[Rfam]
RNA sequence: AUUAUAUGGCAAACCUUGUUCAGUUUUGACAACUUUGUUUCUGUGCAUCAUCACUGGGUGAAGUUUGUCGUAUAAU
Numbered sequence: 001a002u003u004a005u006a007u008g009g010c011a012a013a014c015c016u017u018g019u020u021c022a023g024u025u026u027u028g029a030c031a032a033c034u035u036u037g038u039u040u041c042u043g044u045g046c047a048u049c050a051u052c053a054c055u056g057g058g059u060g061a062a063g064u065u066u067g068u069c070g071u072a073u074a075a076u
Stems, first nucleotide, its partner, number of pairs: 005072010017060003021056004
Shown here is a 76-nucleotide RNA from Drosophila grimshawi, a member of the family "mir-3 microRNA precursor family". The family is grouped with related families in Rfam's "mir-3 clan".